[Rfam]
RNA sequence: ACUGAACACCCUCCACAACGGAUCGUCCGGCACGUACCUGCCGGUGAAGGGAUUGGUAG
Numbered sequence: 001a002c003u004g005a006a007c008a009c010c011c012u013c014c015a016c017a018a019c020g021g022a023u024c025g026u027c028c029g030g031c032a033c034g035u036a037c038c039u040g041c042c043g044g045u046g047a048a049g050g051g052a053u054u055g056g057u058a059g
Stems, first nucleotide, its partner, number of pairs: 009051004014046002027044006